[Rfam]
RNA sequence: GACUCUCCGUUUUGACAGCGGAUCUUGAUUUAAUGUCAUUCAAUUAACUCACGCGAUGAAUGCCAAGAGUG
Numbered sequence: 001g002a003c004u005c006u007c008c009g010u011u012u013u014g015a016c017a018g019c020g021g022a023u024c025u026u027g028a029u030u031u032a033a034u035g036u037c038a039u040u041c042a043a044u045u046a047a048c049u050c051a052c053g054c055g056a057u058g059a060a061u062g063c064c065a066a067g068a069g070u071g
Base pairs, nucleotide, nucleotide: 003069004068005067006066009063010062012060013059015057018054019053020052025047026046027045028044029043030042
Shown here is a 71-nucleotide RNA sequence from Leptobrachium leishanense, a member of the family "mir-124 microRNA precursor family". The base pairs follow the family's consensus structure, which was predicted with PFOLD. For this family Rfam cites "Computational identification of Drosophila microRNA genes" (Lai et al., Genome Biol, 2003).